Shown here is an 83-nucleotide RNA sequence from Callithrix jacchus, a member of the family "mir-515 microRNA precursor family". For this family Rfam cites "Identification of hundreds of conserved and nonconserved human microRNAs" (Bentwich et al., Nat Genet, 2005). A search with the family's covariance model found it, with a score of 77 bits. Taxonomically the source falls in Callithrix (Eukaryota, Opisthokonta, Amniota, Eutheria). Gene Ontology terms of the family: RISC complex and miRNA-mediated post-transcriptional gene silencing.

RNA sequence: UCUCAUGCUGUGACCCUCCCGAGGGAAGCACUUUCUGUUUGAAAGAAAAGAAGUCGCUUCCCUCAGGGGGUUACUGUUUGAGA
Dot-bracket structure: (((((.((.(((((.(((..(((((((((..((((..((........))))))..))))))))).))).))))).)).)))))